[Rfam]
RNA sequence: UGGCGCCUGGACAGGGACCUGGACACGGGGGAAAAAGUGAGGAAGAAGUCACUAAAGUCAGCCGAAAGUAAAAGUGGAAGAAAUUCCUCCAGACGUCGUGGGAACCUGCCACAUUGGAACCAGAGGUAAGUAACAGUGUCUGAUUAUGGGACAAGAAUUAAGCCAGCAUCAAAUUUCUGUAGGGCAAUUAAAAGAGGAUUUAAAAGCACAAGGAGUAAACGUUAAAAGUAGUGAUUUGUUUAAAUUUUUUGAUUUUGUAAAGGAUACCUGCCCUU
Numbered sequence: 001u002g003g004c005g006c007c008u009g010g011a012c013a014g015g016g017a018c019c020u021g022g023a024c025a026c027g028g029g030g031g032a033a034a035a036a037g038u039g040a041g042g043a044a045g046a047a048g049u050c051a052c053u054a055a056a057g058u059c060a061g062c063c064g065a066a067a068g069u070a071a072a073a074g075u076g077g078a079a080g081a082a083a084u085u086c087c088u089c090c091a092g093a094c095g096u097c098g099u100g101g102g103a104a105c106c107u108g109c110c111a112c113a114u115u116g117g118a119a120c121c122a123g124a125g126g127u128a129a130g131u132a133a134c135a136g137u138g139u140c141u142g143a144u145u146a147u148g149g150g151a152c153a154a155g156a157a158u159u160a161a162g163c164c165a166g167c168a169u170c171a172a173a174u175u176u177c178u179g180u181a182g183g184g185c186a187a188u189u190a191a192a193a194g195a196g197g198a199u200u201u202a203a204a205a206g207c208a209c210a211a212g213g214a215g216u217a218a219a220c221g222u223u224a225a226a227a228g229u230a231g232u233g234a235u236u237u238g239u240u241u242a243a244a245u246u247u248u249u250u251g252a253u254u255u256u257g258u259a260a261a262g263g264a265u266a267c268c269u270g271c272c273c274u275u
Stems, first nucleotide, its partner, number of pairs: 006031003015024001035049001038046001084128001086126001088123001094116001098112004136152002139150004159202003163197002209251008219237001221235004260275004265270001
RNA: Mason-Pfizer monkey virus packaging signal
Organism: Colobus angolensis